[Rfam]
RNA sequence: UUCAGACAAGGGCAAACAUUCUCGAAAGAAAUGGGCGCAAAGCCACGGGUCUAAGGCUUAUUGCUAAGAUCGCCGGGUUACCUGA
Dot-bracket structure: ...........((...((((.((....))))))...))..((((.((((((....((.....))...)))..)))))))......
Numbered sequence: 001u002u003c004a005g006a007c008a009a010g011g012g013c014a015a016a017c018a019u020u021c022u023c024g025a026a027a028g029a030a031a032u033g034g035g036c037g038c039a040a041a042g043c044c045a046c047g048g049g050u051c052u053a054a055g056g057c058u059u060a061u062u063g064c065u066a067a068g069a070u071c072g073c074c075g076g077g078u079u080a081c082c083u084g085a
Stems, first nucleotide, its partner, number of pairs: 012038002017033004022029002041079004046075003049070003056064002
Notes: The record is an 85-nucleotide sequence from Fictibacillus arsenicus, which matches "c-di-GMP-I riboswitch aptamer" in Rfam. The match comes from Rfam's covariance-model search (70 bits).